Rfam assigns this 77-nucleotide RNA from Medicago truncatula to the family "MIR5269 microRNA precursor family". Pairs were carried over by alignment from the consensus structure, which was predicted with RNAalifold.

[Rfam]
RNA sequence: UUGGUUUAAAUCAUUGUGGAUCUACACUUUGAAAAUUGAAUCCACACAAAGUGGUGGGACAUAUUGAUUGUAUCCCA
Numbered sequence: 001u002u003g004g005u006u007u008a009a010a011u012c013a014u015u016g017u018g019g020a021u022c023u024a025c026a027c028u029u030u031g032a033a034a035a036u037u038g039a040a041u042c043c044a045c046a047c048a049a050a051g052u053g054g055u056g057g058g059a060c061a062u063a064u065u066g067a068u069u070g071u072a073u074c075c076c077a
Stems, first nucleotide, its partner, number of pairs: 001077001003075002006072001009069005015063004022057003025053007